[Rfam]
RNA sequence: UGGGCAGAUUAUUGUAUUCGACUGUAUUCACGGCGUGAAACAAGAGGUUACACUGUUUUUAAACGGAAAGUGAAUCAAUUAAAAUAUUAGAUUCCU
Number, nucleotide and partner (000 for none) at each position: 001u000002g095003g094004g093005c000006a000007g000008a000009u090010u089011a088012u000013u086014g085015u084016a000017u082018u081019c000020g080021a079022c000023u077024g076025u000026a075027u074028u073029c072030a071031c070032g000033g000034c065035g064036u063037g059038a058039a057040a056041c055042a054043a000044g000045a000046g000047g000048u000049u000050a000051c000052a000053c000054u042055g041056u040057u039058u038059u037060u000061a000062a000063a036064c035065g034066g000067a000068a000069a000070g031071u030072g029073a028074a027075u026076c024077a023078a000079u021080u020081a018082a017083a000084a015085u014086a013087u000088u011089a010090g009091a000092u000093u004094c003095c002096u000
Shown here is a 96-nucleotide RNA sequence from Nicotiana sylvestris, a member of the family "MIR6152 microRNA precursor family". The family has 2 seed sequences and 5,807 matches in Rfam 15.1. Rfam links the family to the GO terms RISC complex and miRNA-mediated post-transcriptional gene silencing.